The record is a 93-nucleotide RNA from Pacificibacter maritimus, which matches "Rhodo-rpoB RNA" in Rfam. It scores 61 bits against the family's covariance model. Taxonomically the source falls in Pacificibacter (Bacteria, Pseudomonadota, Alphaproteobacteria, Roseobacteraceae).
[Rfam]
RNA sequence: GGAUCGGGAGCCACCUGUGGGAGGGUGGCAGGAAUAGAUCGAGCACCUCUGUUUCGUAAGGGUACAUCGGCCGGCGCCCAACGGUUCGAUGCA
Numbered sequence: 001g002g003a004u005c006g007g008g009a010g011c012c013a014c015c016u017g018u019g020g021g022a023g024g025g026u027g028g029c030a031g032g033a034a035u036a037g038a039u040c041g042a043g044c045a046c047c048u049c050u051g052u053u054u055c056g057u058a059a060g061g062g063u064a065c066a067u068c069g070g071c072c073g074g075c076g077c078c079c080a081a082c083g084g085u086u087c088g089a090u091g092c093a
Base pairs, nucleotide, nucleotide: 002040003039004038005037010029011028012027013026014025015024016023063093065091066090067089069086070085071084072083073082